[Rfam]
RNA sequence: UGACCAGGGGGCCGGGAUGCACUGAUUGAUCGGAUCGGUGCGACCUAGGGGUACAGGGAGUACCUCCGCUGAGGGCCGGGUCAGGUGAAGC
Numbered sequence: 001u002g003a004c005c006a007g008g009g010g011g012c013c014g015g016g017a018u019g020c021a022c023u024g025a026u027u028g029a030u031c032g033g034a035u036c037g038g039u040g041c042g043a044c045c046u047a048g049g050g051g052u053a054c055a056g057g058g059a060g061u062a063c064c065u066c067c068g069c070u071g072a073g074g075g076c077c078g079g080g081u082c083a084g085g086u087g088a089a090g091c
Stems, first nucleotide, its partner, number of pairs: 001083005010077004014046003018042001020040008048066007
A member of the RNA family "ivy-DE RNA" from Pseudomonas sp. StFLB209, 91 nucleotides long. A search with the family's covariance model found it, with a score of 96 bits. Lineage of the source: Bacteria > Pseudomonadati > Pseudomonadota > Pseudomonadales > Pseudomonas. It is annotated as a cis-regulatory element.